This 109-nucleotide RNA from Cucumis sativus belongs to the Rfam family "Small nucleolar RNA R64/Z200 family". A search with the family's covariance model found it, with a score of 74 bits. Its family is annotated with nucleolus and RNA processing in the Gene Ontology.
[Rfam]
RNA sequence: UUUUUGCGAUGAUGAAUUAUGAAUUAAAUUCACAUGUCAGACUUCGGAGAUUUUUCUUUUCUCGGAAAGAUAAGUCGAUGAGAAUGAAUAUUCAUAUUCUGAGCUUAAU
Numbered sequence: 001u002u003u004u005u006g007c008g009a010u011g012a013u014g015a016a017u018u019a020u021g022a023a024u025u026a027a028a029u030u031c032a033c034a035u036g037u038c039a040g041a042c043u044u045c046g047g048a049g050a051u052u053u054u055u056c057u058u059u060u061c062u063c064g065g066a067a068a069g070a071u072a073a074g075u076c077g078a079u080g081a082g083a084a085u086g087a088a089u090a091u092u093c094a095u096a097u098u099c100u101g102a103g104c105u106u107a108a109u
Stems, first nucleotide, its partner, number of pairs: 002108002006104002049076004